[Rfam]
Description
Shown here is a 261-nucleotide part of an RNA from a Nitrosopumilaceae archaeon, a member of the family "Archaeal large subunit ribosomal RNA". Clan: LSU clan. It scores 2658 bits against the family's covariance model.
RNA sequence: GAAUAACUGAGGGGAAGUUGCUCCUAGUACGAGAGGAACAGAGCAGCGUGGCCACUGGUCUACCGGUUGUCUGACAAGGCAGGCCGGGCAGCUAAGCCGUUUAGGCUAAGUGCUGAAAGCAUCUAAGCACGAAUCCUAUCCCGAGACAAGUUAUUCCUUCGUUAGAUGAAGGUCGGCAGCAGAAGACUGCGUUGAUAGGAAGGUGGUGUAGAUCACAAGCUUCGGCGAGUGGUGAGCCAGCCUUUACUAACAGACCAACAC
Numbered sequence: 001g002a003a004u005a006a007c008u009g010a011g012g013g014g015a016a017g018u019u020g021c022u023c024c025u026a027g028u029a030c031g032a033g034a035g036g037a038a039c040a041g042a043g044c045a046g047c048g049u050g051g052c053c054a055c056u057g058g059u060c061u062a063c064c065g066g067u068u069g070u071c072u073g074a075c076a077a078g079g080c081a082g083g084c085c086g087g088g089c090a091g092c093u094a095a096g097c098c099g100u101u102u103a104g105g106c107u108a109a110g111u112g113c114u115g116a117a118a119g120c121a122u123c124u125a126a127g128c129a130c131g132a133a134u135c136c137u138a139u140c141c142c143g144a145g146a147c148a149a150g151u152u153a154u155u156c157c158u159u160c161g162u163u164a165g166a167u168g169a170a171g172g173u174c175g176g177c178a179g180c181a182g183a184a185g186a187c188u189g190c191g192u193u194g195a196u197a198g199g200a201a202g203g204u205g206g207u208g209u210a211g212a213u214c215a216c217a218a219g220c221u222u223c224g225g226c227g228a229g230u231g232g233u234g235a236g237c238c239a240g241c242c243u244u245u246a247c248u249a250a251c252a253g254a255c256c257a258a259c260a261c
Base pairs, nucleotide, nucleotide: 001156002155003154004153005152006151007150008149011142012141013140014139017047018046019045020044021043022042023041048100049099050098051097052096056094057093058092063087064086065085066084067083068081069080070079071078072077103137104136105135110130111129112128113127114126171256172255173254174253176190177189178188179187196249197248198247199245200244201243202242203241204239205238206237209234212233213232214231215230216229219226
The base pairs follow the family's consensus structure, which is taken from published work.